[Rfam]
RNA sequence: GCCCUGUGGUUGCUGGACACUGCUGUGCCGUGCAGUGCUCAGUUGGCAGGAAGGGCCCACAGUGACUCUGUGAUUCACGCAGGGAGUCUGUGAUCUGUGACAGCCUCCACAGCCCUGUCACAGGCACACCU
Numbered sequence: 001g002c003c004c005u006g007u008g009g010u011u012g013c014u015g016g017a018c019a020c021u022g023c024u025g026u027g028c029c030g031u032g033c034a035g036u037g038c039u040c041a042g043u044u045g046g047c048a049g050g051a052a053g054g055g056c057c058c059a060c061a062g063u064g065a066c067u068c069u070g071u072g073a074u075u076c077a078c079g080c081a082g083g084g085a086g087u088c089u090g091u092g093a094u095c096u097g098u099g100a101c102a103g104c105c106u107c108c109a110c111a112g113c114c115c116u117g118u119c120a121c122a123g124g125c126a127c128a129c130c131u
Base pairs, nucleotide, nucleotide: 001057003055004054007048008047010045012043013042014041015040017039019036020035021034022033023032068123070121071120072119073118074117079113080112083108084107086105088103089102090101091100

Small nucleolar RNA SNORA84: a 131-nucleotide RNA sequence from Alaudala cheleensis.
On this family, see Marker et al., Curr Biol 2002: "Experimental RNomics: identification of 140 candidates for small non-messenger RNAs in the plant Arabidopsis thaliana".
The base pairs follow the family's consensus structure, which was predicted with WAR.
Rfam links the family to the GO terms nucleolus and RNA processing.